[Rfam]
RNA sequence: GGUAUUACUAGGCAAAGCUAGGGAAAUCUAGUGACGCAAAGCUAAAGGGGCUAAGGAAGAAAUUCUAUGCCAGCCAGUUGCCGGC
Numbered sequence: 001g002g003u004a005u006u007a008c009u010a011g012g013c014a015a016a017g018c019u020a021g022g023g024a025a026a027u028c029u030a031g032u033g034a035c036g037c038a039a040a041g042c043u044a045a046a047g048g049g050g051c052u053a054a055g056g057a058a059g060a061a062a063u064u065c066u067a068u069g070c071c072a073g074c075c076a077g078u079u080g081c082c083g084g085c
Stems, first nucleotide, its partner, number of pairs: 012037002017032006040079004047075002049071003056065003